[Rfam]
RNA sequence: UCGUAACACGAACCAGUGCUAGAGAGUCCUGCCCAACGGCUACUAACAGGUGCUAUUGGGGCAGGGACCCUUUAGCACCGGUUCGUGUUACCAA
Numbered sequence: 001u002c003g004u005a006a007c008a009c010g011a012a013c014c015a016g017u018g019c020u021a022g023a024g025a026g027u028c029c030u031g032c033c034c035a036a037c038g039g040c041u042a043c044u045a046a047c048a049g050g051u052g053c054u055a056u057u058g059g060g061g062c063a064g065g066g067a068c069c070c071u072u073u074a075g076c077a078c079c080g081g082u083u084c085g086u087g088u089u090a091c092c093a094a
Stems, first nucleotide, its partner, number of pairs: 003091012016078009026068002029065002032060003036056001043049002
The record is a 94-nucleotide sequence from Sorghum bicolor, which matches "MIR5387 microRNA precursor family" in Rfam. The match comes from Rfam's covariance-model search (84 bits).